[Rfam]
RNA sequence: GUUGAGAGGAAUGUCGUCUGGCCUGAGAUCGUACCACAGUGGUGGGUACACGUGGACGGUCUCGGACCAGGCUUCAUUCCCCUCAAC
Number, nucleotide and partner (000 for none) at each position: 001g087002u086003u085004g084005a083006g082007a000008g080009g079010a078011a077012u076013g075014u000015c000016g072017u071018c070019u069020g068021g067022c000023c000024u064025g063026a062027g000028a000029u000030c000031g000032u000033a000034c000035c000036a000037c000038a000039g000040u000041g000042g000043u000044g000045g000046g000047u000048a000049c000050a000051c000052g000053u000054g000055g000056a000057c000058g000059g000060u000061c000062u026063c025064g024065g000066a000067c021068c020069a019070g018071g017072c016073u000074u000075c013076a012077u011078u010079c009080c008081c000082c006083u005084c004085a003086a002087c001

Overview: A member of the RNA family "mir-166 microRNA precursor family" from Oryza rufipogon, 87 nucleotides long. Rfam links the family to the GO terms miRNA-mediated post-transcriptional gene silencing and RISC complex. The organism belongs to Oryza, within Eukaryota. Rfam describes the family as follows. This family represents the plant microRNA (miRNA) precursor mir-166. On this family, see Ambros, Cell 2001: "microRNAs: tiny regulators with great potential".